This 98-nucleotide RNA from Meconopsis racemosa belongs to the Rfam family "Plastid-psbA-1 3UTR RNA".
Plastid psbA-1 is a non-coding RNA (ncRNA) present in plastids. It was identified in inverted repeat sequences in the 3 prime untranslate region (3UTR) of photosystem II quinone-binding protein (psbA).
The literature on the family includes a 2023 paper in Plant Commun by Richter et al., "Retrograde signaling in plants: A critical review focusing on the GUN pathway and beyond".
The organism belongs to Meconopsis, within Eukaryota.
It is annotated as a cis-regulatory element.
The sequence is in the family's curated seed alignment.

RNA sequence: UAAAAGGUACACUUUUUUAUGAAAAAAACAAUACUAAAAUUAAAUGAAGGAGCAAUACCGACCCUCUUGAUAGAAUAAGAGGGUCGGUAUUGCUCCUU
Dot-bracket structure: ..............................................((((((((((((.(((.(((((........))))).))).))))))))))))
Numbered sequence: 001u002a003a004a005a006g007g008u009a010c011a012c013u014u015u016u017u018u019a020u021g022a023a024a025a026a027a028a029c030a031a032u033a034c035u036a037a038a039a040u041u042a043a044a045u046g047a048a049g050g051a052g053c054a055a056u057a058c059c060g061a062c063c064c065u066c067u068u069g070a071u072a073g074a075a076u077a078a079g080a081g082g083g084u085c086g087g088u089a090u091u092g093c094u095c096c097u098u
Stems, first nucleotide, its partner, number of pairs: 047098012060085003064081005